About this RNA
Cripavirus internal ribosome entry site (IRES): a 197-nucleotide RNA from Wuhan millipede virus 3. From the family's description: This family represents a Cripavirus internal ribosome entry site (IRES) which is required for the production of capsid proteins through IRES-mediated translation. On this family, see Murray et al., Elife 2016: "Structural characterization of ribosome recruitment and translocation by type IV IRES".

RNA sequence: GCUUAAGUGUGAUCUUGCUCGUUAACGACAACUUUCUGACUUUAAAGUUGACGAGUAUUGCUGCUUGAGCGAUGUGGUAUUGUAUAUACAAUUUACUACCAGGGUACCACGUUGGCAGCCCCAACAAAACCCAGGUACAGUCAGUGCAGCAAAGUCGAUUAAGUUGUCACUUUGCCUAAGAAAUUAACUUGCUGAAA
Number, nucleotide and partner (000 for none) at each position: 001g070002c069003u068004u067005a066006a065007g064008u063009g062010u000011g000012a000013u000014c000015u000016u057017g056018c055019u054020c053021g052022u051023u050024a049025a000026c047027g000028a000029c000030a000031a000032c000033u000034u000035u000036c144037u143038g142039a141040c140041u000042u000043u000044a000045a000046a000047g026048u000049u024050g023051a022052c021053g020054a019055g018056u017057a016058u000059u000060g000061c000062u009063g008064c007065u006066u005067g004068a003069g002070c001071g000072a000073u000074g110075u109076g108077g107078u106079a000080u091081u090082g089083u088084a000085u000086a000087u000088a083089c082090a081091a080092u000093u000094u000095a000096c000097u137098a136099c135100c134101a000102g132103g131104g130105u129106a078107c077108c076109a075110c074111g125112u000113u123114g122115g121116c000117a000118g000119c000120c000121c115122c114123a113124a000125c111126a000127a000128a000129a105130c104131c103132c102133a000134g100135g099136u098137a097138c000139a000140g040141u039142c038143a037144g036145u000146g000147c000148a000149g175150c174151a173152a172153a000154g171155u000156c000157g168158a167159u166160u191161a190162a189163g188164u187165u186166g159167u158168c157169a000170c000171u154172u152173u151174g150175c149176c000177u000178a000179a000180g000181a000182a000183a000184u000185u000186a165187a164188c163189u162190u161191g160192c000193u000194g000195a000196a000197a000